[Rfam]
RNA sequence: GGCCUAUGAUGUUUAACAAUUUGUCCGUACCAUCUGAGAAGUAUUUCGAUGGAGUAUACAAAUCAAUCCAUAUUUUCUGAGGCCU
Numbered sequence: 001g002g003c004c005u006a007u008g009a010u011g012u013u014u015a016a017c018a019a020u021u022u023g024u025c026c027g028u029a030c031c032a033u034c035u036g037a038g039a040a041g042u043a044u045u046u047c048g049a050u051g052g053a054g055u056a057u058a059c060a061a062a063u064c065a066a067u068c069c070a071u072a073u074u075u076u077c078u079g080a081g082g083c084c085u
Base pairs, nucleotide, nucleotide: 001084002083003082004081

Rfam assigns this 85-nucleotide RNA from Momordica charantia to the family "small nucleolar RNA snoR117". It is annotated as a C/D-box small nucleolar RNA. The literature on the family includes a 2009 paper in Nucleic Acids Res by Chen and Wu, "Mining small RNA sequencing data: a new approach to identify small nucleolar RNAs in Arabidopsis".